[Rfam]
RNA: S10-Clostridia ribosomal protein leader
Organism: Caldisalinibacter kiritimatiensis
RNA sequence: UACAUGCAAUGAGGCAAAAGGUUGCUGAUGAGAAUCAGGUAAUUUUUGCUGAGUAUGUCCCGUUUAAAAUGGGGCGACUG
Numbered sequence: 001u002a003c004a005u006g007c008a009a010u011g012a013g014g015c016a017a018a019a020g021g022u023u024g025c026u027g028a029u030g031a032g033a034a035u036c037a038g039g040u041a042a043u044u045u046u047u048g049c050u051g052a053g054u055a056u057g058u059c060c061c062g063u064u065u066a067a068a069a070u071g072g073g074g075c076g077a078c079u080g
Stems, first nucleotide, its partner, number of pairs: 014049003018046004025038005057078003062075004